[Rfam]
The family of this 73-nucleotide sequence from Eubacterium sp. CAG:86 is "Fluoride riboswitch aptamer (crcB RNA motif)".

RNA sequence: UUACAAGUUGGGAAUGAAGUUCUCCCAUGGGAAACCUAAACUGCUUAUUAUAGCUGAUGACUUCUACGAUUUU
Number, nucleotide and partner (000 for none) at each position: 001u000002u000003a000004c000005a000006a000007g000008u000009u000010g026011g025012g024013a023014a000015u000016g064017a063018a062019g061020u060021u059022c000023u013024c012025c011026c010027a000028u000029g000030g000031g000032a000033a000034a000035c000036c000037u000038a000039a000040a000041c000042u000043g054044c053045u052046u000047a000048u000049u000050a000051u000052a045053g044054c043055u000056g000057a000058u000059g021060a020061c019062u018063u017064c016065u000066a000067c000068g000069a000070u000071u000072u000073u000
The match comes from Rfam's covariance-model search (47 bits).